[Rfam]
Rfam assigns this 263-nucleotide part of an RNA from Halorientalis sp. IM1011 to the family "Archaeal large subunit ribosomal RNA". Lineage of the source: Archaea > Methanobacteriota > Halobacteria > Haloarculaceae > Halorientalis.

RNA sequence: GAGUGUACUUGUUUGGCGAGUCUAACCCGUUCAUCGGGGAAGGCACAGGGAAACCGACAUGGCCGCAGUGCUUUGCACGAGGGCCGCCGUGUUCAAGCGCGGGGAGUCAAACGGGUACGACCCGAAACCGGGUGAUCUACGCGUGGGCAAGAUGAAGCGUGCCGAAAGGCACGUGGAAGUCUGUUAGGGAUGGUGUCCUACAAUACCCUCCCGUGACCUACGUGUAGGGGUGAAAGGCCCAUCGAACCCGGAAACAGCUGGUU
Numbered sequence: 001g002a003g004u005g006u007a008c009u010u011g012u013u014u015g016g017c018g019a020g021u022c023u024a025a026c027c028c029g030u031u032c033a034u035c036g037g038g039g040a041a042g043g044c045a046c047a048g049g050g051a052a053a054c055c056g057a058c059a060u061g062g063c064c065g066c067a068g069u070g071c072u073u074u075g076c077a078c079g080a081g082g083g084c085c086g087c088c089g090u091g092u093u094c095a096a097g098c099g100c101g102g103g104g105a106g107u108c109a110a111a112c113g114g115g116u117a118c119g120a121c122c123c124g125a126a127a128c129c130g131g132g133u134g135a136u137c138u139a140c141g142c143g144u145g146g147g148c149a150a151g152a153u154g155a156a157g158c159g160u161g162c163c164g165a166a167a168g169g170c171a172c173g174u175g176g177a178a179g180u181c182u183g184u185u186a187g188g189g190a191u192g193g194u195g196u197c198c199u200a201c202a203a204u205a206c207c208c209u210c211c212c213g214u215g216a217c218c219u220a221c222g223u224g225u226a227g228g229g230g231u232g233a234a235a236g237g238c239c240c241a242u243c244g245a246a247c248c249c250g251g252a253a254a255c256a257g258c259u260g261g262u263u
Stems, first nucleotide, its partner, number of pairs: 005118013020044004026038004048055002061085004068078004088101004121261002124258001128251006137227011148215001150182004157174007187212004192208002195206002229239003